[Rfam]
RNA sequence: AGCCGGUGACGAUAAACUCCUUUACUUUCUGACACCUCAUAUGAGAGCUGAACUCCAGCUCCUGAUUCAUACUCACAUCUGAGGCUC
Number, nucleotide and partner (000 for none) at each position: 001a086002g085003c084004c083005g000006g000007u000008g000009a000010c000011g000012a000013u000014a000015a000016a000017c000018u000019c000020c000021u000022u000023u000024a000025c000026u000027u000028u000029c000030u000031g000032a000033c000034a000035c000036c000037u000038c000039a000040u000041a000042u000043g000044a000045g000046a000047g059048c058049u057050g056051a000052a000053c000054u000055c000056c050057a049058g048059c047060u000061c000062c000063u000064g000065a000066u000067u000068c000069a000070u000071a000072c000073u000074c000075a000076c000077a000078u000079c000080u000081g000082a000083g004084g003085c002086u001087c000